About this RNA
Rfam assigns this 101-nucleotide sequence from Microbacterium sp. Root166 to the family "mraW RNA".

RNA sequence: CUGAGCCCUCCGGUCCCGACUCCCAGCUGCUCGUGCCCUGACACCACUUCCCCGGUGCCAGGUCGGAGCGGAUGGGGAUCAGGGCCUGAGGUCCCGAAUAC
Numbered sequence: 001c002u003g004a005g006c007c008c009u010c011c012g013g014u015c016c017c018g019a020c021u022c023c024c025a026g027c028u029g030c031u032c033g034u035g036c037c038c039u040g041a042c043a044c045c046a047c048u049u050c051c052c053c054g055g056u057g058c059c060a061g062g063u064c065g066g067a068g069c070g071g072a073u074g075g076g077g078a079u080c081a082g083g084g085c086c087u088g089a090g091g092u093c094c095c096g097a098a099u100a101c
Stems, first nucleotide, its partner, number of pairs: 010088001012086005018080002021077005027071006034065002037062004042057003